[Rfam]
RNA sequence: CCCUGUAAUACUGUGCAUAUACAUGUCAUACAACUAAUGUAAAUGCCAGUCGUUGCAGGAAU
Numbered sequence: 001c002c003c004u005g006u007a008a009u010a011c012u013g014u015g016c017a018u019a020u021a022c023a024u025g026u027c028a029u030a031c032a033a034c035u036a037a038u039g040u041a042a043a044u045g046c047c048a049g050u051c052g053u054u055g056c057a058g059g060a061a062u
Stems, first nucleotide, its partner, number of pairs: 002059003006055004010050004015046004020041005

Rfam assigns this 62-nucleotide RNA from Caenorhabditis brenneri to the family "mir-357 microRNA precursor family". The organism belongs to Caenorhabditis, within Eukaryota. Rfam's curators put it in the seed alignment. Pairs were carried over by alignment from the consensus structure, which was predicted with RNAalifold.